Record summary: This 54-nucleotide RNA from Oncorhynchus mykiss belongs to the Rfam family "U7 small nuclear RNA". Animal histone pre-mRNAs are spliced by a different mechanism than nuclear pre-mRNAs and self-splicing introns. On this family, see Spycher et al., Nucleic Acids Res 1994: "3' end processing of mouse histone pre-mRNA: evidence for additional base-pairing between U7 snRNA and pre-mRNA". Taxonomically the source falls in Oncorhynchus (Eukaryota, Protacanthopterygii, Salmoniformes, Salmoninae). Pairs were carried over by alignment from the consensus structure, which was predicted with PFOLD. It scores 40 bits against the family's covariance model.
[Rfam]
RNA sequence: AACAGUUGCUCUUUUAGUCUUUCUCCAGUAGGUUUCCUCAAGGAGAAAGCCCCC
Numbered sequence: 001a002a003c004a005g006u007u008g009c010u011c012u013u014u015u016a017g018u019c020u021u022u023c024u025c026c027a028g029u030a031g032g033u034u035u036c037c038u039c040a041a042g043g044a045g046a047a048a049g050c051c052c053c054c
Stems, first nucleotide, its partner, number of pairs: 031051005037045003